The record is a 122-nucleotide RNA from Castanea mollissima, which matches "MIR1509 microRNA precursor family" in Rfam.
[Rfam]
RNA sequence: GGGUCCAAUCCAUAUUUUUAUACAGAGUAAUCACGGUUGAGAACUAACAACGCAACAGCGUUAUUAUAUAGUCUCUCAAACUCUCAACCGUGUUUCUCUGUAUAAAGAAAUGUGCUGGAUCC
Numbered sequence: 001g002g003g004u005c006c007a008a009u010c011c012a013u014a015u016u017u018u019u020a021u022a023c024a025g026a027g028u029a030a031u032c033a034c035g036g037u038u039g040a041g042a043a044c045u046a047a048c049a050a051c052g053c054a055a056c057a058g059c060g061u062u063a064u065u066a067u068a069u070a071g072u073c074u075c076u077c078a079a080a081c082u083c084u085c086a087a088c089c090g091u092g093u094u095u096c097u098c099u100g101u102a103u104a105a106a107g108a109a110a111u112g113u114g115c116u117g118g119a120u121c122c
Base pairs, nucleotide, nucleotide: 001122002121003120004119005118006117007116011112012111013110016107017106018105019104020103021102022101023100024099025098026097027096029094030093032092033091034090035089036088037087039085040084041083
Dot-bracket structure: (((((((...(((..((((((((((((.((.((((((.(((.........................................))).)))))))).))))))))))))..)))...)))))))

Taxonomically the source falls in Castanea (Eukaryota, Streptophytina, Tracheophyta, Fagaceae).